Record summary:
Group II catalytic intron D1-D4-1: an 85-nucleotide RNA from Carboxydocella thermautotrophica. Rfam's curators write: Group II introns are found in rRNA, tRNA and mRNA of organelles in fungi, plants and protists, and also in mRNA in bacteria. Its family is annotated with Group II intron splicing in the Gene Ontology. A search with the family's covariance model found it, with a score of 74 bits. Rfam 15.1 lists 2,508 matches to the family in 1,144 species.

[Rfam]
RNA sequence: UAACCCAGGUUGUAAGGCCUGGCUGAACCGGCAGAAGUCAGCAGAGGUCAUAGUAGCCAGUAUUGACGUCAAACUGGUGAAGGGC
Numbered sequence: 001u002a003a004c005c006c007a008g009g010u011u012g013u014a015a016g017g018c019c020u021g022g023c024u025g026a027a028c029c030g031g032c033a034g035a036a037g038u039c040a041g042c043a044g045a046g047g048u049c050a051u052a053g054u055a056g057c058c059a060g061u062a063u064u065g066a067c068g069u070c071a072a073a074c075u076g077g078u079g080a081a082g083g084g085c
Base pairs, nucleotide, nucleotide: 001025002024005022006021007020008019009018010017011016038045039044047085048084049083056078057077058076059075060074061073